[Rfam]
This 71-nucleotide RNA belongs to the Rfam family "Small nucleolar RNA snoR60". Rfam classes the family as a C/D-box small nucleolar RNA. The family has 10 seed sequences and 1,133 matches in Rfam 15.1.
RNA sequence: AUGCAUGUGAUGAGUUACUCGGAUUCCCCUUCAGGACUUCUUGGAUGAUGUAGACCCGAGAUUCUGAUGCA
Numbered sequence: 001a002u003g004c005a006u007g008u009g010a011u012g013a014g015u016u017a018c019u020c021g022g023a024u025u026c027c028c029c030u031u032c033a034g035g036a037c038u039u040c041u042u043g044g045a046u047g048a049u050g051u052a053g054a055c056c057c058g059a060g061a062u063u064c065u066g067a068u069g070c071a
Stems, first nucleotide, its partner, number of pairs: 002071004